Rfam assigns this 129-nucleotide RNA sequence from Ruminiclostridium herbifermentans to the family "FMN riboswitch aptamer (RFN element)". About the family: The RFN element is a highly conserved domain that is found frequently in the 5'-untranslated regions of prokaryotic mRNAs that encode for flavin mononucleotide (FMN) biosynthesis and transport proteins. This element is a metabolite-dependent riboswitch that directly binds FMN in the absence of proteins. In Bacillus subtilis, the riboswitch most likely controls gene expression by causing premature transcription termination within the 5' untranslated region of the ribDEAHT operon and precluding access to the ribosome-binding site of ypaA mRNA.The FMN riboswitch structure, reported in present an FMN-bound six-stem junction, adopts a butterfly-like scaffold, stapled together by opposingly directed but nearly identically folded peripheral domains.
RNA sequence: GUGUAUCUUCAGGGCAGGGCGAGAUUCCCUACCGGCGGUAAUGUGCAAAUACUGCAUUAGCCCGCGAGCGAAAGCCGACACGGUGAGAUUCCGUGGCCGACAGUACAGUCUGGAUGGAAGAAGAAUUAC
Numbered sequence: 001g002u003g004u005a006u007c008u009u010c011a012g013g014g015c016a017g018g019g020c021g022a023g024a025u026u027c028c029c030u031a032c033c034g035g036c037g038g039u040a041a042u043g044u045g046c047a048a049a050u051a052c053u054g055c056a057u058u059a060g061c062c063c064g065c066g067a068g069c070g071a072a073a074g075c076c077g078a079c080a081c082g083g084u085g086a087g088a089u090u091c092c093g094u095g096g097c098c099g100a101c102a103g104u105a106c107a108g109u110c111u112g113g114a115u116g117g118a119a120g121a122a123g124a125a126u127u128a129c
Base pairs, nucleotide, nucleotide: 003127006124007123008122009121010120017029018028019027031109032108033099034098035065036064037063038062060097061096068075069074079095080094081093082092083091101112102111103110
On this family, see Vitreschak et al., Nucleic Acids Res 2002: "Regulation of riboflavin biosynthesis and transport genes in bacteria by transcriptional and translational attenuation".